[Rfam]
RNA sequence: GUUUUCACUAUGAAUUUACUAUGAAAACACACCCUCGUGAAAAGCGAAGCUUUUCACGAGGGUGUGUUUUCAUAGUAAAUUCAUAGUGGCCACUGGACUGGACUGGGCGAAGCCCAGUCCAGGCUGGCCCAGAUUUUGGGUCGCGCAGUCCACGUCAUGGAGCUGGCCGAAGGCCAGCUCCAUGACUCUAG
Numbered sequence: 001g002u003u004u005u006c007a008c009u010a011u012g013a014a015u016u017u018a019c020u021a022u023g024a025a026a027a028c029a030c031a032c033c034c035u036c037g038u039g040a041a042a043a044g045c046g047a048a049g050c051u052u053u054u055c056a057c058g059a060g061g062g063u064g065u066g067u068u069u070u071c072a073u074a075g076u077a078a079a080u081u082c083a084u085a086g087u088g089g090c091c092a093c094u095g096g097a098c099u100g101g102a103c104u105g106g107g108c109g110a111a112g113c114c115c116a117g118u119c120c121a122g123g124c125u126g127g128c129c130c131a132g133a134u135u136u137u138g139g140g141u142c143g144c145g146c147a148g149u150c151c152a153c154g155u156c157a158u159g160g161a162g163c164u165g166g167c168c169g170a171a172g173g174c175c176a177g178c179u180c181c182a183u184g185a186c187u188c189u190a191g
Stems, first nucleotide, its partner, number of pairs: 014080006031063015089146002154186003159181010

The record is a 191-nucleotide RNA sequence from Symbiodinium necroappetens, which matches "Enterobacterial sRNA STnc70" in Rfam.
Taxonomically the source falls in Symbiodinium (Eukaryota, Sar, Alveolata, Dinophyceae).
The family's consensus secondary structure was predicted with PFOLD.
By type it is a small RNA.